[Rfam]
RNA sequence: AGGCAAGGAUACAAUAUUGUGUUCCGAUAUGCACCGUACUGUGGAGCCUCUGGAGGGGUUGUAUGUGAACCUCAAAUCGGAUAGGUUUUAGCUGAAAGAAAACAUGCAGA
Numbered sequence: 001a002g003g004c005a006a007g008g009a010u011a012c013a014a015u016a017u018u019g020u021g022u023u024c025c026g027a028u029a030u031g032c033a034c035c036g037u038a039c040u041g042u043g044g045a046g047c048c049u050c051u052g053g054a055g056g057g058g059u060u061g062u063a064u065g066u067g068a069a070c071c072u073c074a075a076a077u078c079g080g081a082u083a084g085g086u087u088u089u090a091g092c093u094g095a096a097a098g099a100a101a102a103c104a105u106g107c108a109g110a
Base pairs, nucleotide, nucleotide: 001049002048003047004046011042012041013040015038016037017036019034020033021032022031024080025079026078027077063105064104065103084093085092086091
Shown here is a 110-nucleotide RNA, a member of the family "drum RNA". About the family: Firmicutes, Bacteroidetes (1 example), Proteobacteria (2 examples), Spirochaetes (2 examples). Rfam's curators put it in the seed alignment.